[Rfam]
RNA sequence: GAAGCCGGACCGCCGAAUCUGCCCCGCACGCACGUGUGGGGGAGAACCGGGGACCCAACUGUGCAGAUCUGGUUGAUCUAGAUCAACAAGGGGUGAAUCCGAAAGGUAGGGCCACUCCCGCCCGAACCCGUCAGCUAACCCGGUAGGCGGCCAAGAGUGCCGUG
Numbered sequence: 001g002a003a004g005c006c007g008g009a010c011c012g013c014c015g016a017a018u019c020u021g022c023c024c025c026g027c028a029c030g031c032a033c034g035u036g037u038g039g040g041g042g043a044g045a046a047c048c049g050g051g052g053a054c055c056c057a058a059c060u061g062u063g064c065a066g067a068u069c070u071g072g073u074u075g076a077u078c079u080a081g082a083u084c085a086a087c088a089a090g091g092g093g094u095g096a097a098u099c100c101g102a103a104a105g106g107u108a109g110g111g112c113c114a115c116u117c118c119c120g121c122c123c124g125a126a127c128c129c130g131u132c133a134g135c136u137a138a139c140c141c142g143g144u145a146g147g148c149g150g151c152c153a154a155g156a157g158u159g160c161c162g163u164g
Stems, first nucleotide, its partner, number of pairs: 011149004018045003046144006056090001091129003099106002109123004

c-di-AMP riboswitch aptamer (ydaO/yuaA leader): a 164-nucleotide RNA sequence from Planotetraspora thailandica.
Pairs were carried over by alignment from the consensus structure.
Rfam links the family to the GO terms cyclic-di-AMP binding and regulation of gene expression.